[Rfam]
RNA sequence: UGUCCGAUGCCACGUCGACGGUAGCCUAGCGAUGAUCCUCGAUGCUACAUUGGACAGAUACAAAUGUUUGUGUUUCGCUUUCUGAUAGGAACCUGUGGAUCUUGAAUCUCUGUGAUCUACGGAGCCAUUUCGGCGAUUACAUUU
Numbered sequence: 001u002g003u004c005c006g007a008u009g010c011c012a013c014g015u016c017g018a019c020g021g022u023a024g025c026c027u028a029g030c031g032a033u034g035a036u037c038c039u040c041g042a043u044g045c046u047a048c049a050u051u052g053g054a055c056a057g058a059u060a061c062a063a064a065u066g067u068u069u070g071u072g073u074u075u076c077g078c079u080u081u082c083u084g085a086u087a088g089g090a091a092c093c094u095g096u097g098g099a100u101c102u103u104g105a106a107u108c109u110c111u112g113u114g115a116u117c118u119a120c121g122g123a124g125c126c127a128u129u130u131c132g133g134c135g136a137u138u139a140c141a142u143u144u
Base pairs, nucleotide, nucleotide: 002055003054004053005052006051007050008049009048013044014043015042016041017040018039020037021036022035024030025029075136076135077134078133079132088126089125093122094121095120097118098117099116100115101114

The record is a 144-nucleotide RNA from Arabis nemorensis, which matches "Small nucleolar RNA snoR2/U65" in Rfam. The base pairs follow the family's consensus structure, which was predicted with WAR. By type it is an H/ACA-box small nucleolar RNA. The family has 11 seed sequences and 908 matches in Rfam 15.1. Taxonomically the source falls in Arabis (Eukaryota, Tracheophyta, Spermatophyta, eudicotyledons). Clan: SNORA65 clan. The literature on the family includes a 1998 paper in J Cell Sci by Shaw et al., "Localization and processing from a polycistronic precursor of novel snoRNAs in maize". Gene Ontology terms of the family: nucleolus and RNA processing.